Overview
Small nucleolar RNA Z43: a 95-nucleotide sequence from Senna tora. Rfam 15.1 lists 859 matches to the family in 240 species. A reference for the family is Chen et al. (2003), "The high diversity of snoRNAs in plants: identification and comparative study of 120 snoRNA genes from Oryza sativa", Nucleic Acids Res. Lineage of the source: Eukaryota > Streptophyta > Tracheophyta > rosids > Senna.

[Rfam]
RNA sequence: GGACUGUGACGAUUGAUAUUAAGGUCUCGUUCGUCGUAACUGGCCAACCGGCCUUGCCGACCAUCCUGAUAUAUCACCACCCAUAUUCUGAGUCC
Numbered sequence: 001g002g003a004c005u006g007u008g009a010c011g012a013u014u015g016a017u018a019u020u021a022a023g024g025u026c027u028c029g030u031u032c033g034u035c036g037u038a039a040c041u042g043g044c045c046a047a048c049c050g051g052c053c054u055u056g057c058c059g060a061c062c063a064u065c066c067u068g069a070u071a072u073a074u075c076a077c078c079a080c081c082c083a084u085a086u087u088c089u090g091a092g093u094c095c
Stems, first nucleotide, its partner, number of pairs: 001095004046055002